[Rfam]
Nucleotides: 116
Stems, first nucleotide, its partner, number of pairs: 016032005077116005089110001091108002095104001097102001
Number, partner (000 for none) and nucleotide at each position: 001000c002000g003000c004000g005000u006000a007000u008000u009000u010000u011000g012000c013000c014000c015000a016032g017031g018030c019029g020028g021000a022000g023000c024000u025000c026000a027000a028020c029019c030018g031017c032016c033000g034000c035000u036000c037000c038000a039000a040000g041000c042000c043000a044000u045000g046000a047000a048000g049000g050000c051000g052000u053000u054000a055000u056000c057000g058000a059000c060000a061000a062000g063000c064000a065000u066000c067000g068000u069000g070000a071000g072000g073000c074000c075000u076000a077116c078115g079114g080113g081112g082000g083000c084000g085000a086000a087000c088000c089110g090000a091108u092107c093000u094000g095104c096000c097102g098000c099000g100000u101000u102097c103000u104095g105000g106000c107092g108091a109000u110089c111000a112081c113080c114079c115078c116077g
The family of this 116-nucleotide RNA from Microvirga aerilata is "ALIL pseudoknot". The base pairs follow the family's consensus structure, which is taken from published work. A reference for the family is Mazauric et al. (2008), "Apical loop-internal loop RNA pseudoknots: a new type of stimulator of -1 translational frameshifting in bacteria", J Biol Chem. The family has 26 seed sequences and 2,146 matches in Rfam 15.1.